[Rfam]
Selenocysteine transfer RNA: an 86-nucleotide RNA sequence from Folsomia candida.
The match comes from Rfam's covariance-model search (70 bits).
Its family is annotated with triplet codon-amino acid adaptor activity in the Gene Ontology.
RNA sequence: GCCCAGCUGAGCCUCAGUGGUCUGGGGGAUAGGCUUCAAACCUAUCGAGCUAGAAAUAGCUAGAGGUUCAAUUCCUCCUGGUGGGC
Numbered sequence: 001g002c003c004c005a006g007c008u009g010a011g012c013c014u015c016a017g018u019g020g021u022c023u024g025g026g027g028g029a030u031a032g033g034c035u036u037c038a039a040a041c042c043u044a045u046c047g048a049g050c051u052a053g054a055a056a057u058a059g060c061u062a063g064a065g066g067u068u069c070a071a072u073u074c075c076u077c078c079u080g081g082u083g084g085g086c
Stems, first nucleotide, its partner, number of pairs: 001086005007080001009078001012027006028046006048061005063077004